RNA sequence: GGCUGACCGAUUUCUCUUGGUGUUCAGAGUCUCAGAUUUUGUCUAGCACCAUUUGAAAUCGGUUAUGA
Numbered sequence: 001g002g003c004u005g006a007c008c009g010a011u012u013u014c015u016c017u018u019g020g021u022g023u024u025c026a027g028a029g030u031c032u033c034a035g036a037u038u039u040u041g042u043c044u045a046g047c048a049c050c051a052u053u054u055g056a057a058a059u060c061g062g063u064u065a066u067g068a
Stems, first nucleotide, its partner, number of pairs: 004065001005063001007062008018051005026044003
mir-29 microRNA precursor family: a 68-nucleotide RNA sequence from Phainopepla nitens. The base pairs follow the family's consensus structure, which was predicted with PFOLD. A reference for the family is Ambros (2001), "microRNAs: tiny regulators with great potential", Cell. It scores 65 bits against the family's covariance model.